Background:
Shown here is a 212-nucleotide RNA from Xanthobacter tagetidis, a member of the family "Bradyrhizobiaceae sRNA BjrC174".
[Rfam]
RNA sequence: AUCACGCCAACGUCAAUGGAAUCACAGUCUCGCCGGAAUUCGAACAACCGCACGCCAACGGGCCGGGCGAUCUUCAUACCCGUAGCAGGGCCGGUUCGCGAGGCGCUCCGACCUAUCCCAGCCCCCCAGCCCCCGGGGCGCGCGCGAGCCGGCCACUGCUACGCACCGUUUCUAUCCAGACCCCCGAAGGCCGCCGAAAGGCGGCCUCUUUU
Numbered sequence: 001a002u003c004a005c006g007c008c009a010a011c012g013u014c015a016a017u018g019g020a021a022u023c024a025c026a027g028u029c030u031c032g033c034c035g036g037a038a039u040u041c042g043a044a045c046a047a048c049c050g051c052a053c054g055c056c057a058a059c060g061g062g063c064c065g066g067g068c069g070a071u072c073u074u075c076a077u078a079c080c081c082g083u084a085g086c087a088g089g090g091c092c093g094g095u096u097c098g099c100g101a102g103g104c105g106c107u108c109c110g111a112c113c114u115a116u117c118c119c120a121g122c123c124c125c126c127c128a129g130c131c132c133c134c135g136g137g138g139c140g141c142g143c144g145c146g147a148g149c150c151g152g153c154c155a156c157u158g159c160u161a162c163g164c165a166c167c168g169u170u171u172c173u174a175u176c177c178a179g180a181c182c183c184c185c186g187a188a189g190g191c192c193g194c195c196g197a198a199a200g201g202c203g204g205c206c207u208c209u210u211u212u
Stems, first nucleotide, its partner, number of pairs: 035167002082162006089154011103141008121130002188207008
By type it is a small RNA. Pairs were carried over by alignment from the consensus structure. A reference for the family is Madhugiri et al. (2012), "Small RNAs of the Bradyrhizobium/Rhodopseudomonas lineage and their analysis", RNA Biol.